[Rfam]
RNA sequence: GUCUGUGUAUGAUGAGAAAUUUUAAAACAGUUGACCCUGCCUGAUUUCCUUUUGGAUGAGACACAGAAAUCUGAAACAGAA
Numbered sequence: 001g002u003c004u005g006u007g008u009a010u011g012a013u014g015a016g017a018a019a020u021u022u023u024a025a026a027a028c029a030g031u032u033g034a035c036c037c038u039g040c041c042u043g044a045u046u047u048c049c050u051u052u053u054g055g056a057u058g059a060g061a062c063a064c065a066g067a068a069a070u071c072u073g074a075a076a077c078a079g080a081a
Base pairs, nucleotide, nucleotide: 002080003079004078005077006076
Rfam assigns this 81-nucleotide sequence from Hibiscus syriacus to the family "Small nucleolar RNA R38".
About the family: snoR38 is a C/D box small nucleolar RNA conserved across yeast, human, Arabidopsis and rice. It is encoded in the intron of elongation factor-1 gamma in both pombe and cerevisiae. snoR38 guides the methylation of 2'-O-ribose sites in 28S rRNA.
Its family is annotated with nucleolus and RNA processing in the Gene Ontology.
The match comes from Rfam's covariance-model search (45 bits).
The family's consensus secondary structure was predicted with PFOLD.